The record is a 79-nucleotide RNA from Caenorhabditis elegans, which matches "SmY spliceosomal RNA" in Rfam.
RNA sequence: GUUAAUUCAUUAACUUCCAAGGCCUUACACAAGACCUAGUGGACAAUUUUUGGAGACCCUAUCUAGCCGUGAUAGGGUG
Numbered sequence: 001g002u003u004a005a006u007u008c009a010u011u012a013a014c015u016u017c018c019a020a021g022g023c024c025u026u027a028c029a030c031a032a033g034a035c036c037u038a039g040u041g042g043a044c045a046a047u048u049u050u051u052g053g054a055g056a057c058c059c060u061a062u063c064u065a066g067c068c069g070u071g072a073u074a075g076g077g078u079g
Stems, first nucleotide, its partner, number of pairs: 020037003024033003056078008
Overview: Lineage of the source: Eukaryota > Eumetazoa > Rhabditoidea > Peloderinae > Caenorhabditis.